[Rfam]
RNA sequence: CAAAACACUUUGACGGGAAGAGUAGGCAUGGAACGAACCCACCAGAGAGGAAAUCCUGAGGCUGAAAGAUUUCCGGCCUAACUAUGCUGAAGGCCCUCCCCGAGUCGCAGGACCGAAGAAAGUAAGUCCUGCCGUGGCGUGCGUUAAACGCCGGUGACGUCAAACACCACGAGGGUCCGGAACCGCGAGGAGCCGGUAAAGCAGGGUGGUACCGCGAGCGCGUAAUGCCUCGUCCCUGGC
Numbered sequence: 001c002a003a004a005a006c007a008c009u010u011u012g013a014c015g016g017g018a019a020g021a022g023u024a025g026g027c028a029u030g031g032a033a034c035g036a037a038c039c040c041a042c043c044a045g046a047g048a049g050g051a052a053a054u055c056c057u058g059a060g061g062c063u064g065a066a067a068g069a070u071u072u073c074c075g076g077c078c079u080a081a082c083u084a085u086g087c088u089g090a091a092g093g094c095c096c097u098c099c100c101c102g103a104g105u106c107g108c109a110g111g112a113c114c115g116a117a118g119a120a121a122g123u124a125a126g127u128c129c130u131g132c133c134g135u136g137g138c139g140u141g142c143g144u145u146a147a148a149c150g151c152c153g154g155u156g157a158c159g160u161c162a163a164a165c166a167c168c169a170c171g172a173g174g175g176u177c178c179g180g181a182a183c184c185g186c187g188a189g190g191a192g193c194c195g196g197u198a199a200a201g202c203a204g205g206g207u208g209g210u211a212c213c214g215c216g217a218g219c220g221c222g223u224a225a226u227g228c229c230u231c232g233u234c235c236c237u238g239g240c
Stems, first nucleotide, its partner, number of pairs: 007105002015100004025088006039076002049074006108131006133143003177196004203237004214233005
Dot-bracket structure: ......((......((((......((((((........((........((((((..............))))))))......))))))........))))...))..((((((............)))))).(((.....))).................................((((............))))......((((.......(((((..........)))))))))...
Annotation
Shown here is a 240-nucleotide RNA sequence from Clostridiales bacterium PH28_bin88, a member of the family "T-box leader". Rfam's curators write: Uncharged tRNA acts as the effector for transcription antitermination of genes in the T-box leader family. The family's consensus secondary structure is taken from published work. The match comes from Rfam's covariance-model search (94 bits). By type it is a cis-regulatory leader. NCBI's taxonomy places the organism under Bacteria, Bacillati, Bacillota, Clostridia, Eubacteriales.